[Rfam]
RNA sequence: CGGGCCGAGAGGCGCUGCAACGGGUGAGAGCCCGCCACGCUCGGCCCGGGACACGGACUUUCGCAAGGGCGCCUCCCACGU
Numbered sequence: 001c002g003g004g005c006c007g008a009g010a011g012g013c014g015c016u017g018c019a020a021c022g023g024g025u026g027a028g029a030g031c032c033c034g035c036c037a038c039g040c041u042c043g044g045c046c047c048g049g050g051a052c053a054c055g056g057a058c059u060u061u062c063g064c065a066a067g068g069g070c071g072c073c074u075c076c077c078a079c080g081u
Stems, first nucleotide, its partner, number of pairs: 002047007021034005
Dot-bracket structure: .(((((((............(((((....)))))......)))))))..................................
Shown here is an 81-nucleotide sequence from Actinomadura darangshiensis, a member of the family "SAH (S-adenosyl-L-homocysteine) riboswitch aptamer". The literature on the family includes a 2008 paper in Mol Cell by Wang et al., "Riboswitches that sense S-adenosylhomocysteine and activate genes involved in coenzyme recycling". The base pairs follow the family's consensus structure, which is taken from published work.